RNA sequence: GCCGAGCUAAGUCACUCUAGCUUGUAACCCUAGUGGGGGCACCAAGGUGGUGGGACAUCGGUUCGACUCAUUUGGCAGGACUUGCUGUUGCAAUUUGCCGGCUCGCCCGUUCCAAGUUGAGAGCUGGACCCUGUGGUUCGAGUUAAAGCUUGGGCCACGUGGCCCUUAGAGCGGAGGGCAAUGCGUGAGGCUGGUUUCACAGAGCAGCGAAAACCUCCCACUCCCAACAGUGGAAGGAUAACGUGACGGUGCACCGCUAGCCCAGAUUGUCUCGUGUGUUGAAACCAGUUGAACCACCACUUUU
Numbered sequence: 001g002c003c004g005a006g007c008u009a010a011g012u013c014a015c016u017c018u019a020g021c022u023u024g025u026a027a028c029c030c031u032a033g034u035g036g037g038g039g040c041a042c043c044a045a046g047g048u049g050g051u052g053g054g055a056c057a058u059c060g061g062u063u064c065g066a067c068u069c070a071u072u073u074g075g076c077a078g079g080a081c082u083u084g085c086u087g088u089u090g091c092a093a094u095u096u097g098c099c100g101g102c103u104c105g106c107c108c109g110u111u112c113c114a115a116g117u118u119g120a121g122a123g124c125u126g127g128a129c130c131c132u133g134u135g136g137u138u139c140g141a142g143u144u145a146a147a148g149c150u151u152g153g154g155c156c157a158c159g160u161g162g163c164c165c166u167u168a169g170a171g172c173g174g175a176g177g178g179c180a181a182u183g184c185g186u187g188a189g190g191c192u193g194g195u196u197u198c199a200c201a202g203a204g205c206a207g208c209g210a211a212a213a214c215c216u217c218c219c220a221c222u223c224c225c226a227a228c229a230g231u232g233g234a235a236g237g238a239u240a241a242c243g244u245g246a247c248g249g250u251g252c253a254c255c256g257c258u259a260g261c262c263c264a265g266a267u268u269g270u271c272u273c274g275u276g277u278g279u280u281g282a283a284a285c286c287a288g289u290u291g292a293a294c295c296a297c298c299a300c301u302u303u304u
Base pairs, nucleotide, nucleotide: 001040002039003038004023005022006021007020008019009018011016028037029036030035044303045302046301047300048299049298050297051296052295053294056291057290058288060286062283063282064281065280066279069276070275071274074271075270076269077268078263079262081260082259084257085256087255089253090252093250098249099248100247102245104243105242107237108236110235111234112233113232114231116228117227118226119225121223122222123221126165127164129162130161132159133158134157135156136155137154138153139152140151141150142149143148166171173218174217175216176215177214182211184209185208186207191202192201193200
Dot-bracket structure: (((((((((.(....).))))))....(((....))))))...((((((((((..(((.(.(((((..(((..((((((.((.((.(.((..(....(((.(.((.((.(((((.((((.(((..((.((.((((((((((((....)))))))))))).)).))(....).(((((....(.(((....(((......)))....))).)..)))))..))).))))..)))))))....)).).)))).)).))).)).))....))))..)))..)))))..).).))..)))))))))).